[Rfam]
RNA: SAM riboswitch aptamer (S box leader)
Organism: Peribacillus psychrosaccharolyticus
RNA sequence: UUCUUAUCAAGAGAGGUGGAGGGACUAGCCCUUUGAUGCCUCAGCAGCAGACUUAUUGUAAGUACUGUGCUAAUUCUAGUAGCGUAAGCUUGAAGAUAAGAA
Numbered sequence: 001u002u003c004u005u006a007u008c009a010a011g012a013g014a015g016g017u018g019g020a021g022g023g024a025c026u027a028g029c030c031c032u033u034u035g036a037u038g039c040c041u042c043a044g045c046a047g048c049a050g051a052c053u054u055a056u057u058g059u060a061a062g063u064a065c066u067g068u069g070c071u072a073a074u075u076c077u078a079g080u081a082g083c084g085u086a087a088g089c090u091u092g093a094a095g096a097u098a099a100g101a102a
Base pairs, nucleotide, nucleotide: 001102002101003100004099005098006097007096008095013042014041015040016039017038021031022030023029025079026078027077028076043071044070045069046068048067049066051063052062053061075094081090082089083088